A member of the RNA family "Vibrio RNA AS7" from Vibrio proteolyticus, 169 nucleotides long. On this family, see Liu et al., Nucleic Acids Res 2009: "Experimental discovery of sRNAs in Vibrio cholerae by direct cloning, 5S/tRNA depletion and parallel sequencing". The organism belongs to Vibrio proteolyticus, within Bacteria. From the family's description: Identified by direct cloning an parallel sequencing experiments with 5S/tRNA depletion. Confirmed by Northern blot. The base pairs follow the family's consensus structure, which was predicted with RNAfold.

RNA sequence: GGUGUCUGAAGGAGGAGGUUACUGCGUUCCUUGAUGUCACCACCAAUGUGGUAGGGCAGACCACAGUUGGCGAAAGAAACGAACGGCCCCCGUUCAAACAUGAUGAUGGUUGCGUCUUCACUCAGUCUGCGAGCACGAGCUGCCGCGGAGGCACCGCCUGCUACGCCAC
Numbered sequence: 001g002g003u004g005u006c007u008g009a010a011g012g013a014g015g016a017g018g019u020u021a022c023u024g025c026g027u028u029c030c031u032u033g034a035u036g037u038c039a040c041c042a043c044c045a046a047u048g049u050g051g052u053a054g055g056g057c058a059g060a061c062c063a064c065a066g067u068u069g070g071c072g073a074a075a076g077a078a079a080c081g082a083a084c085g086g087c088c089c090c091c092g093u094u095c096a097a098a099c100a101u102g103a104u105g106a107u108g109g110u111u112g113c114g115u116c117u118u119c120a121c122u123c124a125g126u127c128u129g130c131g132a133g134c135a136c137g138a139g140c141u142g143c144c145g146c147g148g149a150g151g152c153a154c155c156g157c158c159u160g161c162u163a164c165g166c167c168a169c
Base pairs, nucleotide, nucleotide: 001167002166003165004164005163008161010159011025013023014022016020032056035053036052037051038050039049040048061070062069076154080150084147085146086144088142092140093139094138095137099133101131102130105127106126107125112121114119